[Rfam]
RNA sequence: AAAUUUUCUCGUUAGGUGAGGCUCCUAUACAAACACAGGCCACUGCCCGGAAACAUCGAAAGAUGCCAAUGGGUAGAACAGGAACUGCCGGAUUAAGGCUUUUCAUAAGGUGGCUGAGAGAAUGAUAUCUCUACGUUGUAUAGUGCCAAAACUCAACAUGGGGGAGAUGGA
Numbered sequence: 001a002a003a004u005u006u007u008c009u010c011g012u013u014a015g016g017u018g019a020g021g022c023u024c025c026u027a028u029a030c031a032a033a034c035a036c037a038g039g040c041c042a043c044u045g046c047c048c049g050g051a052a053a054c055a056u057c058g059a060a061a062g063a064u065g066c067c068a069a070u071g072g073g074u075a076g077a078a079c080a081g082g083a084a085c086u087g088c089c090g091g092a093u094u095a096a097g098g099c100u101u102u103u104c105a106u107a108a109g110g111u112g113g114c115u116g117a118g119a120g121a122a123u124g125a126u127a128u129c130u131c132u133a134c135g136u137u138g139u140a141u142a143g144u145g146c147c148a149a150a151a152c153u154c155a156a157c158a159u160g161g162g163g164g165a166g167a168u169g170g171a
Stems, first nucleotide, its partner, number of pairs: 005167006011157002013096001015153003020147003025143008039114005045074005054065004082104003087099003116131003

This 171-nucleotide RNA sequence from Paenibacillus sp. GP183 belongs to the Rfam family "M-box riboswitch aptamer (ykoK leader)". The base pairs follow the family's consensus structure. The literature on the family includes a 2004 paper in Proc Natl Acad Sci U S A by Barrick et al., "New RNA motifs suggest an expanded scope for riboswitches in bacterial genetic control". The family has 159 seed sequences and 1,095 matches in Rfam 15.1. It scores 159 bits against the family's covariance model. Rfam's curators write: M-box riboswitch, also know as ykoK leader is described as a metaloregulatory RNA that sense divalent metals and function as a genetic control element of genes related to divalent metal transport in bacteria. It was first reported upstream of the B.subtilis ykoK gene and genes with related functions in other bacteria.